[Rfam]
Record summary
The record is a 398-nucleotide sequence from Actinomycetales bacterium SN12, which matches "Bacterial RNase P class A" in Rfam.
RNA sequence: UGGGUCGGCCGGACGGCCGCGUGGCGCGUGAGCGCACCGAGGAACGUCCGGGCUCCACAGGGCAGGGCGGUGGGUAACACCCACCCGGAGUGAUCCGCGAGACAGUGCCACAGAGAGAAGACCGCCCGUCCGACACCUGGGUCCCUGAGCUUGUCGAAGGGUCGCAGGGCGGAUGGGUAAGGGUGAAAGGGUGGUGUAAGAGACCACCGGGGAGCGCGGUGACGCGCUCCGCCAGGUAAACCUCGCCCGGAGCAAGACCAGACAGAGGACGUUGACGCGGCUCGCCGAGUCCUCGGGUAGGUCGCUGGAACGACACGGCAACGUGUCGUCGAGAGAGAUGGCCGUCAAGGGAGCGAAGAACUCCUGAACAGAACCCGGCGUACAGGCCGGCCCACUCG
Numbered sequence: 001u002g003g004g005u006c007g008g009c010c011g012g013a014c015g016g017c018c019g020c021g022u023g024g025c026g027c028g029u030g031a032g033c034g035c036a037c038c039g040a041g042g043a044a045c046g047u048c049c050g051g052g053c054u055c056c057a058c059a060g061g062g063c064a065g066g067g068c069g070g071u072g073g074g075u076a077a078c079a080c081c082c083a084c085c086c087g088g089a090g091u092g093a094u095c096c097g098c099g100a101g102a103c104a105g106u107g108c109c110a111c112a113g114a115g116a117g118a119a120g121a122c123c124g125c126c127c128g129u130c131c132g133a134c135a136c137c138u139g140g141g142u143c144c145c146u147g148a149g150c151u152u153g154u155c156g157a158a159g160g161g162u163c164g165c166a167g168g169g170c171g172g173a174u175g176g177g178u179a180a181g182g183g184u185g186a187a188a189g190g191g192u193g194g195u196g197u198a199a200g201a202g203a204c205c206a207c208c209g210g211g212g213a214g215c216g217c218g219g220u221g222a223c224g225c226g227c228u229c230c231g232c233c234a235g236g237u238a239a240a241c242c243u244c245g246c247c248c249g250g251a252g253c254a255a256g257a258c259c260a261g262a263c264a265g266a267g268g269a270c271g272u273u274g275a276c277g278c279g280g281c282u283c284g285c286c287g288a289g290u291c292c293u294c295g296g297g298u299a300g301g302u303c304g305c306u307g308g309a310a311c312g313a314c315a316c317g318g319c320a321a322c323g324u325g326u327c328g329u330c331g332a333g334a335g336a337g338a339u340g341g342c343c344g345u346c347a348a349g350g351g352a353g354c355g356a357a358g359a360a361c362u363c364c365u366g367a368a369c370a371g372a373a374c375c376c377g378g379c380g381u382a383c384a385g386g387c388c389g390g391c392c393c394a395c396u397c398g
Stems, first nucleotide, its partner, number of pairs: 001394010011383001012346007020039002024035004044381003048378005053252004060283004065248005070084005085099001086097004100243002105241002107237003122182002124178009190208006210232001211230008256303004265294006277285002310329008